About this RNA:
The record is a 100-nucleotide RNA sequence from Aliigemmobacter aestuarii, which matches "TPP riboswitch aptamer (THI element)" in Rfam. It scores 71 bits against the family's covariance model. Pairs were carried over by alignment from the consensus structure, which is taken from published work.
RNA sequence: CAUCUCACCUCGGGGUGCCCGUCACGGGCUGAGACGCGCAAGCGAACCCGUUGAACCUGAACCGGUUAGGACCGGCGGAGGGAAGGUGUGGAAUGUCUCC
Numbered sequence: 001c002a003u004c005u006c007a008c009c010u011c012g013g014g015g016u017g018c019c020c021g022u023c024a025c026g027g028g029c030u031g032a033g034a035c036g037c038g039c040a041a042g043c044g045a046a047c048c049c050g051u052u053g054a055a056c057c058u059g060a061a062c063c064g065g066u067u068a069g070g071a072c073c074g075g076c077g078g079a080g081g082g083a084a085g086g087u088g089u090g091g092a093a094u095g096u097c098u099c100c
Stems, first nucleotide, its partner, number of pairs: 006088005011050004016044001017029005036043002056081003062075004